The record is a 144-nucleotide RNA sequence from Paenibacillus abyssi, which matches "c-di-AMP riboswitch aptamer (ydaO/yuaA leader)" in Rfam.
[Rfam]
RNA sequence: UAUGAAAUUGCGCUUAAUUUCCGGUUGCAAUGUCCGGAAAGCGGGGGAACCAGUUAUUUUGGGGCGAAUCAUUCUUGACAGAAUGUAGGGUACCAUCUUACCCGAGUCCGUCAGCUAACCUCGUCAGCAGUUAGAUGGGUCGUU
Numbered sequence: 001u002a003u004g005a006a007a008u009u010g011c012g013c014u015u016a017a018u019u020u021c022c023g024g025u026u027g028c029a030a031u032g033u034c035c036g037g038a039a040a041g042c043g044g045g046g047g048a049a050c051c052a053g054u055u056a057u058u059u060u061g062g063g064g065c066g067a068a069u070c071a072u073u074c075u076u077g078a079c080a081g082a083a084u085g086u087a088g089g090g091u092a093c094c095a096u097c098u099u100a101c102c103c104g105a106g107u108c109c110g111u112c113a114g115c116u117a118a119c120c121u122c123g124u125c126a127g128c129a130g131u132u133a134g135a136u137g138g139g140u141c142g143u144u
Stems, first nucleotide, its partner, number of pairs: 012128003018040007041124006051061002062109003070085004088103004